[Rfam]
A member of the RNA family "SAM riboswitch aptamer (S box leader)" from Rhodococcus triatomae, 115 nucleotides long. Rfam's curators write: The SAM riboswitch is found upstream of a number of genes which code for proteins involved in methionine or cysteine biosynthesis in Gram-positive bacteria. The literature on the family includes a 2003 paper in Nat Struct Biol by Winkler et al., "An mRNA structure that controls gene expression by binding S-adenosylmethionine". NCBI's taxonomy places the organism under Bacteria, Bacillati, Actinomycetes, Nocardiaceae, Rhodococcus.
RNA sequence: UUGCCAUCCAGAGCGACCGAGAGACCUGGCUCGUUGACGUCGCAGCAACCCUCCGGACUUCGCGCAUUCGCCGCGGGGAUUCGGGUGCGGGUGCUACCGCCGGGAUCGAUGGGAA
Number, nucleotide and partner (000 for none) at each position: 001u115002u114003g000004c112005c111006a110007u109008c108009c000010a000011g000012a000013g043014c042015g041016a040017c039018c000019g000020a000021g032022a031023g030024a000025c000026c103027u102028g101029g100030c023031u022032c021033g000034u000035u000036g000037a000038c000039g017040u016041c015042g014043c013044a095045g094046c093047a092048a000049c091050c090051c087052u000053c085054c084055g000056g000057a000058c000059u000060u000061c000062g000063c000064g000065c000066a000067u000068u000069c000070g000071c000072c000073g000074c000075g000076g000077g000078g000079a000080u000081u000082c000083g000084g054085g053086u000087g051088c000089g000090g050091g049092u047093g046094c045095u044096a000097c000098c000099g107100c029101c028102g027103g026104g000105a000106u000107c099108g008109a007110u006111g005112g004113g000114a002115a001

It scores 53 bits against the family's covariance model. Pairs were carried over by alignment from the consensus structure, which is taken from published work.